[Rfam]
RNA: Guanidine-II riboswitch aptamer (mini-ykkC)
Organism: Pseudomonas japonica
RNA sequence: GUCCGGGGACGACCCCGGACCGCCACAACCACCGCGGGACGACCCGC
Numbered sequence: 001g002u003c004c005g006g007g008g009a010c011g012a013c014c015c016c017g018g019a020c021c022g023c024c025a026c027a028a029c030c031a032c033c034g035c036g037g038g039a040c041g042a043c044c045c046g047c
Base pairs, nucleotide, nucleotide: 001020002019003018004017005016006015007014008013034047035046036045037044038043